[Rfam]
RNA sequence: AUUCUAUGAUGAUUCUAUCAAAACGACUUUCAUGCUUCUCAGUAUGCUGAAGCCACAUUUUAGGUACUGAGAAGU
Numbered sequence: 001a002u003u004c005u006a007u008g009a010u011g012a013u014u015c016u017a018u019c020a021a022a023a024c025g026a027c028u029u030u031c032a033u034g035c036u037u038c039u040c041a042g043u044a045u046g047c048u049g050a051a052g053c054c055a056c057a058u059u060u061u062a063g064g065u066a067c068u069g070a071g072a073a074g075u
Stems, first nucleotide, its partner, number of pairs: 001075003004071001
Small nucleolar RNA SNORD59: a 75-nucleotide sequence from Suricata suricatta. A search with the family's covariance model found it, with a score of 57 bits. For this family Rfam cites "Purified box C/D snoRNPs are able to reproduce site-specific 2'-O-methylation of target RNA in vitro" (Galardi et al., Mol Cell Biol, 2002). Rfam classes the family as a C/D-box small nucleolar RNA. Gene Ontology terms of the family: nucleolus and RNA processing. The source organism's lineage runs through Eukaryota, Vertebrata, Tetrapoda, Laurasiatheria and Suricata.